The record is a 461-nucleotide part of an RNA from Brettanomyces bruxellensis, which matches "Eukaryotic large subunit ribosomal RNA" in Rfam. Lineage of the source: Eukaryota > Fungi > Saccharomycotina > Pichiaceae > Brettanomyces. The family's consensus secondary structure is taken from published work.
RNA sequence: GGUAGUAGCAAAUAUUCAAAUGAGAUUCUUUGAAGACUGAAGUGGGGAAAGGUUCCAUAACAACAGCAGUUGGAUAUGGGUUAGUCGAUCCUAAGAGAUGGGGGAACUCCGUUUCAAAGCCUUAAUUUGUUUUAAGGCACCAUCGAAAGGGAACCCGGUUAAUAUUCCGGGACUUGGAUAUGGGAAAAUUUAUUACGACGGCAACGUAAAGGAAUGUGGAGACGCCGGCAUGGGCCCUGGGAGGAGUUUUCUUUUCUUGUUAACGCCUUAACACCCCGGAAUUGGUUUAUCCGGAGAGGGGGUUUUAUGGGCGGAAGAGCGUGGCCCAAAAUUUAUUUUGCAGUUAGCCACGUCUGGAGCGCUCAUGACGGUCCGUGAAAAUCCACAGGAGACAGAUAUUCUUUAUGCCAAGUCGUACUAAUAACCGCAGCAGGUCCUCAAGGUUAGCAGCCUCUAGUUGA
Numbered sequence: 001g002g003u004a005g006u007a008g009c010a011a012a013u014a015u016u017c018a019a020a021u022g023a024g025a026u027u028c029u030u031u032g033a034a035g036a037c038u039g040a041a042g043u044g045g046g047g048a049a050a051g052g053u054u055c056c057a058u059a060a061c062a063a064c065a066g067c068a069g070u071u072g073g074a075u076a077u078g079g080g081u082u083a084g085u086c087g088a089u090c091c092u093a094a095g096a097g098a099u100g101g102g103g104g105a106a107c108u109c110c111g112u113u114u115c116a117a118a119g120c121c122u123u124a125a126u127u128u129g130u131u132u133u134a135a136g137g138c139a140c141c142a143u144c145g146a147a148a149g150g151g152a153a154c155c156c157g158g159u160u161a162a163u164a165u166u167c168c169g170g171g172a173c174u175u176g177g178a179u180a181u182g183g184g185a186a187a188a189u190u191u192a193u194u195a196c197g198a199c200g201g202c203a204a205c206g207u208a209a210a211g212g213a214a215u216g217u218g219g220a221g222a223c224g225c226c227g228g229c230a231u232g233g234g235c236c237c238u239g240g241g242a243g244g245a246g247u248u249u250u251c252u253u254u255u256c257u258u259g260u261u262a263a264c265g266c267c268u269u270a271a272c273a274c275c276c277c278g279g280a281a282u283u284g285g286u287u288u289a290u291c292c293g294g295a296g297a298g299g300g301g302g303u304u305u306u307a308u309g310g311g312c313g314g315a316a317g318a319g320c321g322u323g324g325c326c327c328a329a330a331a332u333u334u335a336u337u338u339u340g341c342a343g344u345u346a347g348c349c350a351c352g353u354c355u356g357g358a359g360c361g362c363u364c365a366u367g368a369c370g371g372u373c374c375g376u377g378a379a380a381a382u383c384c385a386c387a388g389g390a391g392a393c394a395g396a397u398a399u400u401c402u403u404u405a406u407g408c409c410a411a412g413u414c415g416u417a418c419u420a421a422u423a424a425c426c427g428c429a430g431c432a433g434g435u436c437c438u439c440a441a442g443g444u445u446a447g448c449a450g451c452c453u454c455u456a457g458u459u460g461a
Stems, first nucleotide, its partner, number of pairs: 015034006035459004044439004050419002055079005064072002086415003090150002095144002097113003101110003120137003154171005174411004179407005184401002198207003215387006224372004229367007237357003240260001242258004264313005273303005282294004320352006425434002441453004